A member of the RNA family "c-di-GMP-II-GAG riboswitch aptamer", 83 nucleotides long.
Clan: c-di-GMP_II riboswitch clan.
It is one of the family's seed sequences.
[Rfam]
RNA sequence: GCGUGCCCGGAGGCUGUGACACGCGGGCCACACCCGGUCGCUCCACCCGCGCCGAGCCACUGUCGAGACCGACCCGCGUUCAC
Numbered sequence: 001g002c003g004u005g006c007c008c009g010g011a012g013g014c015u016g017u018g019a020c021a022c023g024c025g026g027g028c029c030a031c032a033c034c035c036g037g038u039c040g041c042u043c044c045a046c047c048c049g050c051g052c053c054g055a056g057c058c059a060c061u062g063u064c065g066a067g068a069c070c071g072a073c074c075c076g077c078g079u080u081c082a083c
Stems, first nucleotide, its partner, number of pairs: 001083001003081001005079002007076001009074002012058003022051006036070002038066003042062001